[Rfam]
RNA sequence: UGGAUAUGAUGACUGAUUAUCUGAAAUUCUGAUGAAACUUGUCAAAUUCCUCUAGAUAGUCAAGUGCUGAUCCAG
Numbered sequence: 001u002g003g004a005u006a007u008g009a010u011g012a013c014u015g016a017u018u019a020u021c022u023g024a025a026a027u028u029c030u031g032a033u034g035a036a037a038c039u040u041g042u043c044a045a046a047u048u049c050c051u052c053u054a055g056a057u058a059g060u061c062a063a064g065u066g067c068u069g070a071u072c073c074a075g
Stems, first nucleotide, its partner, number of pairs: 001074004
RNA: Small nucleolar RNA SNORD20